The family of this 88-nucleotide RNA sequence from Equus caballus is "mir-9014 microRNA precursor family". Pairs were carried over by alignment from the consensus structure, which was predicted with RNAalifold. Rfam 15.1 lists 581 matches to the family in 2 species. It scores 88 bits against the family's covariance model.

RNA sequence: GGAGCCAUAGGGAGGGAUUCCAAACCAGCCUUAGGAAAAGAAACCUGCUGCAGGAGUCUUGGAGAUUGGCGGCCGUCCUGAUGAGUUA
Numbered sequence: 001g002g003a004g005c006c007a008u009a010g011g012g013a014g015g016g017a018u019u020c021c022a023a024a025c026c027a028g029c030c031u032u033a034g035g036a037a038a039a040g041a042a043a044c045c046u047g048c049u050g051c052a053g054g055a056g057u058c059u060u061g062g063a064g065a066u067u068g069g070c071g072g073c074c075g076u077c078c079u080g081a082u083g084a085g086u087u088a
Base pairs, nucleotide, nucleotide: 002087003086006083007082008081010079011078012077013076015074016073018071020069021068022067023066025064029062030061038060039059040058041057044054045053046052047051